RNA sequence: AUCCUGGUGAAGAUUCUCAGACCAUAGGAAGUGUCGUAUGACACUGUAAACAACAGCUGCUUCUCUCCACUGCAAGUGUCCUUCACCCAUAACCUUUGUUGGUUGUGGGCUGGAAUAUCCAUUUGCAGCUGGUUUGGUUUAGCUGUGUGCGUGAUUUUAAGCGGGUCUCUGAGGAAU
Numbered sequence: 001a002u003c004c005u006g007g008u009g010a011a012g013a014u015u016c017u018c019a020g021a022c023c024a025u026a027g028g029a030a031g032u033g034u035c036g037u038a039u040g041a042c043a044c045u046g047u048a049a050a051c052a053a054c055a056g057c058u059g060c061u062u063c064u065c066u067c068c069a070c071u072g073c074a075a076g077u078g079u080c081c082u083u084c085a086c087c088c089a090u091a092a093c094c095u096u097u098g099u100u101g102g103u104u105g106u107g108g109g110c111u112g113g114a115a116u117a118u119c120c121a122u123u124u125g126c127a128g129c130u131g132g133u134u135u136g137g138u139u140u141a142g143c144u145g146u147g148u149g150c151g152u153g154a155u156u157u158u159a160a161g162c163g164g165g166u167c168u169c170u171g172a173g174g175a176a177u
Stems, first nucleotide, its partner, number of pairs: 001177002004174002070128009079114002086109004091104004

Small nucleolar RNA Z112: a 177-nucleotide sequence from Triticum aestivum. NCBI's taxonomy places the organism under Eukaryota, Viridiplantae, Streptophyta, Streptophytina, Triticum. Gene Ontology terms of the family: RNA processing and nucleolus. The family's consensus secondary structure was predicted with PFOLD. The match comes from Rfam's covariance-model search (157 bits).